[Rfam]
Alphaproteobacterial ar14: a 127-nucleotide sequence from Pannonibacter tanglangensis. Rfam's curators write: Smr14C2 was renamed NfeR1 (Nodule Formation Efficiency RNA) highly expressed in salt stress and during the symbiotic interaction on legume roots. The match comes from Rfam's covariance-model search (72 bits). On this family, see del Val et al., RNA Biol 2012: "A survey of sRNA families in alpha-proteobacteria".
RNA sequence: GAAUCGCGGUCCCGGGUUCUCCUCCUCCCAAACCCCGGAUCGUGUGAGACGGCAGGUUCUUCUCCUCCCAAACCUGCCCGACUAAACGACGCCCGCCGGUACCUCCUCCCACCGGCGGGCGUACGUU
Numbered sequence: 001g002a003a004u005c006g007c008g009g010u011c012c013c014g015g016g017u018u019c020u021c022c023u024c025c026u027c028c029c030a031a032a033c034c035c036c037g038g039a040u041c042g043u044g045u046g047a048g049a050c051g052g053c054a055g056g057u058u059c060u061u062c063u064c065c066u067c068c069c070a071a072a073c074c075u076g077c078c079c080g081a082c083u084a085a086a087c088g089a090c091g092c093c094c095g096c097c098g099g100u101a102c103c104u105c106c107u108c109c110c111a112c113c114g115g116c117g118g119g120c121g122u123a124c125g126u127u
Stems, first nucleotide, its partner, number of pairs: 007042003011038002014035004052077006089122011

It is annotated as a small RNA.